[Rfam]
RNA sequence: CGCCUAAACUCAUCAGAUUCUGGUGAGCAUGGCACAAAAACUAGUUAGGUAUAUUAAGCUCUCCGUCCAGAGCACCUAACUAGUCAUAUCGGGAAACCGGUAUGGGUAGCUGCAAGGCUAUC
Numbered sequence: 001c002g003c004c005u006a007a008a009c010u011c012a013u014c015a016g017a018u019u020c021u022g023g024u025g026a027g028c029a030u031g032g033c034a035c036a037a038a039a040a041c042u043a044g045u046u047a048g049g050u051a052u053a054u055u056a057a058g059c060u061c062u063c064c065g066u067c068c069a070g071a072g073c074a075c076c077u078a079a080c081u082a083g084u085c086a087u088a089u090c091g092g093g094a095a096a097c098c099g100g101u102a103u104g105g106g107u108a109g110c111u112g113c114a115a116g117g118c119u120a121u122c
Stems, first nucleotide, its partner, number of pairs: 002033003009027007041083010058073004085104008105122006
Overview: The record is a 122-nucleotide RNA, which matches "LOOT RNA" in Rfam. Rfam's curators put it in the seed alignment. By type it is a small RNA. Pairs were carried over by alignment from the consensus structure, which is taken from published work.